[Rfam]
RNA: Plastid-ccsA-ndhD-2 3UTR RNA
RNA sequence: UCGUGGAGAACCCUUUCAAUCAAGUAAUGUAAUGAUUCAAGGGGUUCUCACAA
Numbered sequence: 001u002c003g004u005g006g007a008g009a010a011c012c013c014u015u016u017c018a019a020u021c022a023a024g025u026a027a028u029g030u031a032a033u034g035a036u037u038c039a040a041g042g043g044g045u046u047c048u049c050a051c052a053a
Base pairs, nucleotide, nucleotide: 006049007048008047009046010045011044012043013042014041015040016039018037019036020035021034022033